[Rfam]
Annotation
A member of the RNA family "Plastid-psbA-1 3UTR RNA" from Musa balbisiana, 113 nucleotides long. The match comes from Rfam's covariance-model search (76 bits). Plastid psbA-1 is a non-coding RNA (ncRNA) present in plastids. It was identified in inverted repeat sequences in the 3 prime untranslate region (3UTR) of photosystem II quinone-binding protein (psbA). Rfam classes the family as a cis-regulatory element. A reference for the family is Richter et al. (2023), "Retrograde signaling in plants: A critical review focusing on the GUN pathway and beyond", Plant Commun. Taxonomically the source falls in Musa (Eukaryota, Streptophyta, Embryophyta, Liliopsida).

RNA sequence: CGAAAGUUUCAUCUACAACUGGAUAAGAUUUUUGUCUUAGUGUAUACGAAUCGUUGAGAAACAAAGUGCAAUACCAUGUCUUGCGUUAGCAAGACAUGGGUAUUGCCUACUUU
Numbered sequence: 001c002g003a004a005a006g007u008u009u010c011a012u013c014u015a016c017a018a019c020u021g022g023a024u025a026a027g028a029u030u031u032u033u034g035u036c037u038u039a040g041u042g043u044a045u046a047c048g049a050a051u052c053g054u055u056g057a058g059a060a061a062c063a064a065a066g067u068g069c070a071a072u073a074c075c076a077u078g079u080c081u082u083g084c085g086u087u088a089g090c091a092a093g094a095c096a097u098g099g100g101u102a103u104u105g106c107c108u109a110c111u112u113u
Stems, first nucleotide, its partner, number of pairs: 008023004063113005068106006074099003078095005